[Rfam]
RNA sequence: CUCCCCGAAAUGCAUUUAGGUGCAGCCUCGGACAUUACCGGCAUGAGGUAGAGCGACUGAUAAGAUGCGAGGGCUUCACCGCCUAUCAAGUCUUGACAAACUCCGAAUGCGUGCCGGUCAGAGUCCGGGAGUGAGGGCGCGGGUGCUAAGGUCCGCGUCCUAAAGGAGAACAAUCCGGACCGGCAGCUAAGGUCCCGAAAUGGAUGCUGAGUUGGACUAACGAAGUCAGAUUGCAGAGACAGCUAGGAUGUUGGCUUGGAAGCAGCCAUUCAUUUAAAGAGUGCGUAACAGCUCACUAGUCGAGGAAUCCGGCAUGGAUAAUAAUCGGGCAUAAGCAUCCUACCGAAGCUCCGGAACCGUCAUGGUUGGUAGGGGAGCAUUCCACGCCGCGUUGAAGGUAUGCCGUGAGGCUUGCUGGAGCGCGUGGAAACGCAAAU
Numbered sequence: 001c002u003c004c005c006c007g008a009a010a011u012g013c014a015u016u017u018a019g020g021u022g023c024a025g026c027c028u029c030g031g032a033c034a035u036u037a038c039c040g041g042c043a044u045g046a047g048g049u050a051g052a053g054c055g056a057c058u059g060a061u062a063a064g065a066u067g068c069g070a071g072g073g074c075u076u077c078a079c080c081g082c083c084u085a086u087c088a089a090g091u092c093u094u095g096a097c098a099a100a101c102u103c104c105g106a107a108u109g110c111g112u113g114c115c116g117g118u119c120a121g122a123g124u125c126c127g128g129g130a131g132u133g134a135g136g137g138c139g140c141g142g143g144u145g146c147u148a149a150g151g152u153c154c155g156c157g158u159c160c161u162a163a164a165g166g167a168g169a170a171c172a173a174u175c176c177g178g179a180c181c182g183g184c185a186g187c188u189a190a191g192g193u194c195c196c197g198a199a200a201u202g203g204a205u206g207c208u209g210a211g212u213u214g215g216a217c218u219a220a221c222g223a224a225g226u227c228a229g230a231u232u233g234c235a236g237a238g239a240c241a242g243c244u245a246g247g248a249u250g251u252u253g254g255c256u257u258g259g260a261a262g263c264a265g266c267c268a269u270u271c272a273u274u275u276a277a278a279g280a281g282u283g284c285g286u287a288a289c290a291g292c293u294c295a296c297u298a299g300u301c302g303a304g305g306a307a308u309c310c311g312g313c314a315u316g317g318a319u320a321a322u323a324a325u326c327g328g329g330c331a332u333a334a335g336c337a338u339c340c341u342a343c344c345g346a347a348g349c350u351c352c353g354g355a356a357c358c359g360u361c362a363u364g365g366u367u368g369g370u371a372g373g374g375g376a377g378c379a380u381u382c383c384a385c386g387c388c389g390c391g392u393u394g395a396a397g398g399u400a401u402g403c404c405g406u407g408a409g410g411c412u413u414g415c416u417g418g419a420g421c422g423c424g425u426g427g428a429a430a431c432g433c434a435a436a437u
Base pairs, nucleotide, nucleotide: 001377002376003375004374005373006372011024012023013022014021015020026131027129028128029127030126031125032124033123036122037118038117039116040115041114042113043112044111045110051104052102053101058098059097062094063093064092065091069087070086071084072083073082074081135160136159137158138157139156140155141154142153143152144151165176166175167174180354181353182352183351185350186349187348191344192343193342200341202340203339204338205337206336207335221316222315225313226312227311229309230308231307232306234304242300243299244298245297246296248273249272250271253267254266255265274278279294283292284291355367356366357365358364378432380429381428382427383426384425385424386423388422389421390420397416398415399414400413402411403410404409